[Rfam]
RNA sequence: CCCUCAAGCUAGGGGUGCCUGCAUCACAGGCUGAGAUUACACCCUUAGAACCUGAGUCCGGUUAGCACCGGCGGAGGGAAGCUGUUUAUCUGAGGA
Numbered sequence: 001c002c003c004u005c006a007a008g009c010u011a012g013g014g015g016u017g018c019c020u021g022c023a024u025c026a027c028a029g030g031c032u033g034a035g036a037u038u039a040c041a042c043c044c045u046u047a048g049a050a051c052c053u054g055a056g057u058c059c060g061g062u063u064a065g066c067a068c069c070g071g072c073g074g075a076g077g078g079a080a081g082c083u084g085u086u087u088a089u090c091u092g093a094g095g096a
Base pairs, nucleotide, nucleotide: 007083008082009081010080011045012044013043014042016039017031018030019029020028021027051077052076053075058071059070060069061068
Notes
A member of the RNA family "TPP riboswitch aptamer (THI element)" from Oscillatoria sp. FACHB-1407, 96 nucleotides long. Rfam describes the family as follows. Vitamin B(1) in its active form thiamin pyrophosphate (TPP) is an essential coenzyme that is synthesised by coupling of pyrimidine and thiazole moieties in bacteria. The match comes from Rfam's covariance-model search (68 bits). Its family is annotated with thiamine pyrophosphate binding in the Gene Ontology.